[Rfam]
RNA sequence: GGUCGGUGAUGAACAGUCAAAGGUCUGAACCUUAGGCUCCGCCCCCCAUCGCCAUCUGGCUCCCAGCAGCCCCUGCUCUCUGCUCCCAUCAUGCUCUAGUGCUGCAGCGGUGGUCCAGCAGCUGCUGACAGACAGGAUGUGACAUCACACUGGGAGUCUGUGCCGAGAUCCAACAGGCUCCCUGUGAUGACGGACAUCCAACAGAACCAAUCAGAACGGAGCGCCAGGCUGAGGGGGAGGAGGGAGCUGAUCUAAAGUUUUCAACCUGAGACC
Numbered sequence: 001g002g003u004c005g006g007u008g009a010u011g012a013a014c015a016g017u018c019a020a021a022g023g024u025c026u027g028a029a030c031c032u033u034a035g036g037c038u039c040c041g042c043c044c045c046c047c048a049u050c051g052c053c054a055u056c057u058g059g060c061u062c063c064c065a066g067c068a069g070c071c072c073c074u075g076c077u078c079u080c081u082g083c084u085c086c087c088a089u090c091a092u093g094c095u096c097u098a099g100u101g102c103u104g105c106a107g108c109g110g111u112g113g114u115c116c117a118g119c120a121g122c123u124g125c126u127g128a129c130a131g132a133c134a135g136g137a138u139g140u141g142a143c144a145u146c147a148c149a150c151u152g153g154g155a156g157u158c159u160g161u162g163c164c165g166a167g168a169u170c171c172a173a174c175a176g177g178c179u180c181c182c183u184g185u186g187a188u189g190a191c192g193g194a195c196a197u198c199c200a201a202c203a204g205a206a207c208c209a210a211u212c213a214g215a216a217c218g219g220a221g222c223g224c225c226a227g228g229c230u231g232a233g234g235g236g237g238a239g240g241a242g243g244g245a246g247c248u249g250a251u252c253u254a255a256a257g258u259u260u261u262c263a264a265c266c267u268g269a270g271a272c273c
Base pairs, nucleotide, nucleotide: 001273002272003271004270033254034253035252036251038249042237043236044235045234046233060221061220062219063218064127065126066125067124068123069122070121086113087112088111089110090109092107094104135199136198137197138196139195140194149185150184152182153181154180155179156178157177158176159175160174161173
The record is a 273-nucleotide RNA from Acanthochromis polyacanthus, which matches "Small Cajal body specific RNA 6" in Rfam. Rfam 15.1 lists 1,309 matches to the family in 627 species. It scores 106 bits against the family's covariance model. The family's RNA type in Rfam is small Cajal body RNA. Gene Ontology terms of the family: RNA processing and nucleolus. About the family: U88 is small Cajal body specific RNA (scaRNA). scaRNAs are a novel class of small nuclear RNAs which localise to the Cajal bodies. U88 is found associated with both fibrillarin and Gar1p and co-localises with coilin in Cajal bodies.